[Rfam]
t44 RNA: an 87-nucleotide RNA from Litoribrevibacter albus. A search with the family's covariance model found it, with a score of 49 bits. A reference for the family is Tjaden et al. (2002), "Transcriptome analysis of Escherichia coli using high-density oligonucleotide probe arrays", Nucleic Acids Res.
RNA sequence: UGAAAAGCGGGUAAAUAACACACGCGCAGCGUUAAUUCAGGUCCGGGUGCCGAAUGGUUGGAUUUGGAGGUUGUGCGGAGGUAUAAC
Dot-bracket structure: ......................((((((((.....(((((((((....(((....))).))))))))).))))))))..........